[Rfam]
RNA sequence: ACUCAACACUUAUUCUUUUAAAAAGGGUGAGUCUAAGUUGUAAAAGCGCGCCGUCUAGAGCGGAUUAUUGAUCAGCUUGUUAGCCCUAAACUUGUUUAAAGGAGUUU
Dot-bracket structure: .......................(((((......(((((....((.....((((.....))))....))....)))))....)))))....................